The record is a 62-nucleotide RNA from Thermoanaerobacterium sp. RBIITD, which matches "Fluoride riboswitch aptamer (crcB RNA motif)" in Rfam.
Gene Ontology terms of the family: response to fluoride and positive regulation of gene expression.
The base pairs follow the family's consensus structure, which is taken from published work.

Nucleotides: 062
Stems, first nucleotide, its partner, number of pairs: 010025004016053006033043003
Number, partner (000 for none) and nucleotide at each position: 001000a002000a003000u004000g005000a006000a007000a008000a009000u010025g011024g012023u013022g014000a015000u016053g017052g018051a019050g020049c021048u022013c023012a024011c025010c026000u027000a028000u029000a030000a031000u032000u033043g034042c035041u036000u037000u038000g039000a040000a041035a042034g043033c044000u045000a046000a047000u048021g049020g050019c051018u052017c053016c054000u055000a056000u057000u058000a059000g060000g061000u062000a